[Rfam]
RNA sequence: AGUUUGCCAUGAUGAAAUGCAUGGUGAGUCCGUGUUUCAGCCGAUCACCCUGGUCAAACACAUGCUCUGAGCAGACU
Numbered sequence: 001a002g003u004u005u006g007c008c009a010u011g012a013u014g015a016a017a018u019g020c021a022u023g024g025u026g027a028g029u030c031c032g033u034g035u036u037u038c039a040g041c042c043g044a045u046c047a048c049c050c051u052g053g054u055c056a057a058a059c060a061c062a063u064g065c066u067c068u069g070a071g072c073a074g075a076c077u
Stems, first nucleotide, its partner, number of pairs: 001077007

The family of this 77-nucleotide RNA from Canis lupus is "Small nucleolar RNA SNORD126". Taxonomically the source falls in Canis lupus (Eukaryota, Deuterostomia, Chordata, Mammalia). The literature on the family includes a 2006 paper in Nucleic Acids Res by Yang et al., "snoSeeker: an advanced computational package for screening of guide and orphan snoRNA genes in the human genome". It is annotated as a C/D-box small nucleolar RNA. The sequence is in the family's curated seed alignment.